This 81-nucleotide sequence from Alligator mississippiensis belongs to the Rfam family "Mammalian CPEB3 ribozyme". It scores 58 bits against the family's covariance model. Gene Ontology term of the family: RNA nuclease activity. For this family Rfam cites "Autocatalytic RNA cleavage in the human beta-globin pre-mRNA promotes transcription termination" (Teixeira et al., Nature, 2004).
Nucleotides: 081
Base pairs, nucleotide, nucleotide: 016049018047020045021044024081025080026079027078028077029076030075031043032042033041053070054069055068056067057066058065059064
Number, partner (000 for none) and nucleotide at each position: 001000a002000g003000a004000g005000g006000u007000c008000a009000c010000a011000a012000g013000u014000c015000c016049g017000a018047g019000g020045c021044c022000g023000c024081g025080g026079c027078a028077g029076a030075a031043g032042u033041g034000c035000u036000c037000a038000c039000g040000g041033c042032a043031c044021g045020g046000g047018c048000c049016c050000u051000g052000u053070c054069a055068g056067a057066u058065u059064c060000c061000a062000g063000c064059g065058a066057a067056u068055c069054u070053g071000c072000a073000a074000a075030u076029u077028c078027u079026g080025c081024u
The source organism's lineage runs through Eukaryota, Bilateria, Deuterostomia, Chordata and Alligator.